RNA sequence: AGCUUUGCACAGUGGCAGUAUCGUAGCCAAUGAGGUUUAUCUGAGGCGCGAUUAUUGCUAAUUGAAAACUUCUCCCAACACUCCGCCGUGAUGACAUGAAAUACAGUUGGCAUUGUCAAUUUUUGACAGUCUCUAUGGAGA
Number, nucleotide and partner (000 for none) at each position: 001a000002g000003c000004u000005u000006u000007g000008c000009a000010c000011a000012g000013u000014g000015g000016c000017a000018g000019u000020a052021u051022c050023g049024u048025a000026g047027c046028c045029a000030a000031u000032g000033a000034g042035g041036u000037u000038u000039a000040u000041c035042u034043g000044a000045g028046g027047c026048g024049c023050g022051a021052u020053u000054a000055u000056u000057g000058c000059u000060a000061a000062u000063u000064g000065a000066a000067a000068a000069c000070u000071u000072c000073u000074c000075c000076c000077a000078a000079c000080a000081c000082u000083c000084c000085g117086c000087c115088g113089u112090g111091a000092u109093g108094a107095c106096a000097u000098g000099a000100a000101a000102u000103a000104c000105a000106g095107u094108u093109g092110g000111c090112a089113u088114u000115g087116u000117c085118a000119a000120u000121u000122u000123u000124u000125g000126a000127c000128a000129g000130u141131c140132u139133c138134u000135a000136u000137g000138g133139a132140g131141a130
Shown here is a 141-nucleotide RNA sequence from Sapajus apella, a member of the family "U4 spliceosomal RNA". From the family's description: U4 small nuclear RNA (U4 snRNA) is a component of the major U2-dependent spliceosome. Rfam classes the family as a spliceosomal small nuclear RNA.